[Rfam]
RNA: Small nucleolar RNA SNORD14
RNA sequence: UGUUGAUGAUGAUAAACUUAAGGCUUGUUUCUCAAGAACAUUCGCAGUUGCCGCCUAAGAGCUUUCGCCUUUCGCCGGGCUUGAGAGUUUAUGCUGUUUUAUCCUUCCUUGGAUGUCUGAGACA
Dot-bracket structure: ((((........................................................((((((................))))))................................))))